[Rfam]
RNA: Actinobacteria sRNA Ms_IGR-5
RNA sequence: ACACGAGGAAGGAGGUGGUCUGAAGUUGAAGAACUACAGGACGCGUGAGGUGGCUGUCAGCUAGCCGCGCCAGCGGAAUUCACUGACCGCGUGUGCGGCUGGCGAAUCCCCGACAGUCACCCGGCCCCCGAGCCCCCGGUCAGUCCCGACCGGGACUGUGCGACGACAAGCGUCCGUCGGCGGUACGGCUCGGGGGCCGUUCGGC
Numbered sequence: 001a002c003a004c005g006a007g008g009a010a011g012g013a014g015g016u017g018g019u020c021u022g023a024a025g026u027u028g029a030a031g032a033a034c035u036a037c038a039g040g041a042c043g044c045g046u047g048a049g050g051u052g053g054c055u056g057u058c059a060g061c062u063a064g065c066c067g068c069g070c071c072a073g074c075g076g077a078a079u080u081c082a083c084u085g086a087c088c089g090c091g092u093g094u095g096c097g098g099c100u101g102g103c104g105a106a107u108c109c110c111c112g113a114c115a116g117u118c119a120c121c122c123g124g125c126c127c128c129c130g131a132g133c134c135c136c137c138g139g140u141c142a143g144u145c146c147c148g149a150c151c152g153g154g155a156c157u158g159u160g161c162g163a164c165g166a167c168a169a170g171c172g173u174c175c176g177u178c179g180g181c182g183g184u185a186c187g188g189c190u191c192g193g194g195g196g197c198c199g200u201u202c203g204g205c
Base pairs, nucleotide, nucleotide: 014058015057016056017055018054019053060103061102062101063100064099065098067096068095069094070093073090074089122199123198124197125196126195127194128193129192130191131190132189133188134187135154136153137152138151139150140149